The family of this 91-nucleotide sequence from Qingshengfaniella alkalisoli is "Rhodo-rpoB RNA".
It scores 63 bits against the family's covariance model.
The base pairs follow the family's consensus structure, which is taken from published work.
The family's RNA type in Rfam is cis-regulatory element.
RNA sequence: AGGUCGGGAGGUGCCCCCUGGGAAGGGCACCGGGCAUAGACCGGCCCCCCUGUUUCAACGGUGCAUCGCCGUAGCCCCGGCGGCCGAUGCG
Numbered sequence: 001a002g003g004u005c006g007g008g009a010g011g012u013g014c015c016c017c018c019u020g021g022g023a024a025g026g027g028c029a030c031c032g033g034g035c036a037u038a039g040a041c042c043g044g045c046c047c048c049c050c051u052g053u054u055u056c057a058a059c060g061g062u063g064c065a066u067c068g069c070c071g072u073a074g075c076c077c078c079g080g081c082g083g084c085c086g087a088u089g090c091g
Base pairs, nucleotide, nucleotide: 002042003041004040005039010031011030012029013028014027015026016025062091063090064089065088066087068084069083070082071081